[Rfam]
RNA sequence: UAAUAAAAUUGAAUAUUUUCUUAUAUAAUCCUUGUAAUAUGGUCAAGGAGUUUCUACAGGAAAACCGUAAAUUUUCCUACUAUAAGAAAAGCUAUUUUCACU
Numbered sequence: 001u002a003a004u005a006a007a008a009u010u011g012a013a014u015a016u017u018u019u020c021u022u023a024u025a026u027a028a029u030c031c032u033u034g035u036a037a038u039a040u041g042g043u044c045a046a047g048g049a050g051u052u053u054c055u056a057c058a059g060g061a062a063a064a065c066c067g068u069a070a071a072u073u074u075u076c077c078u079a080c081u082a083u084a085a086g087a088a089a090a091g092c093u094a095u096u097u098u099c100a101c102u
Stems, first nucleotide, its partner, number of pairs: 018088008029049006058078007
RNA: Purine riboswitch aptamer
Organism: Tepidibacter thalassicus